RNA sequence: UUUUAGGACUCCUGCCAUGAGUAGCAUGCACAGAGCAGCUUGAUUGCUCUAUGUGGAAUCGACAUCAAGAGAUUUUGGAAGCAUAAUUUUUUGGUAUCUGGGCAGCUGGUGAUUGUUGGUCCUGGUGUCCAC
Number, nucleotide and partner (000 for none) at each position: 001u080002u079003u078004u000005a000006g000007g000008a000009c000010u000011c000012c000013u026014g025015c024016c000017a022018u000019g000020a000021g000022u017023a000024g015025c014026a013027u000028g000029c053030a052031c000032a050033g049034a048035g047036c046037a045038g044039c000040u000041u000042g000043a000044u038045u037046g036047c035048u034049c033050u032051a000052u030053g029054u077055g076056g075057a074058a073059u072060c071061g000062a000063c000064a000065u000066c000067a000068a000069g000070a000071g060072a059073u058074u057075u056076u055077g054078g003079a002080a001081g000082c000083a000084u000085a000086a000087u000088u000089u000090u000091u000092u000093g000094g000095u000096a000097u000098c000099u000100g130101g129102g128103c127104a000105g126106c125107u124108g123109g122110u000111g121112a120113u119114u118115g000116u000117u000118g114119g113120u112121c111122c109123u108124g107125g106126u105127g103128u102129c101130c100131a000132c000
U11 spliceosomal RNA: a 132-nucleotide RNA from Myotis myotis. The family's consensus secondary structure is taken from published work. A search with the family's covariance model found it, with a score of 72 bits.